[Rfam]
RNA sequence: UUGAAGCUCCAUCUACAAAUGGAUAAGACCCGGUCUUAGUGUAUACGAGUUUUAAAAAAUAAAAAAGAAGCAAUGGUGCCCUCUUGAUAAAACAAGAGGGCACCAUUGCUUCUUUU
Numbered sequence: 001u002u003g004a005a006g007c008u009c010c011a012u013c014u015a016c017a018a019a020u021g022g023a024u025a026a027g028a029c030c031c032g033g034u035c036u037u038a039g040u041g042u043a044u045a046c047g048a049g050u051u052u053u054a055a056a057a058a059a060u061a062a063a064a065a066a067g068a069a070g071c072a073a074u075g076g077u078g079c080c081c082u083c084u085u086g087a088u089a090a091a092a093c094a095a096g097a098g099g100g101c102a103c104c105a106u107u108g109c110u111u112c113u114u115u116u
Base pairs, nucleotide, nucleotide: 008023009022010021011020012019064115065114066113067112068111069110070109071108072107073106074105075104076103078101079100081098082097083096084095085094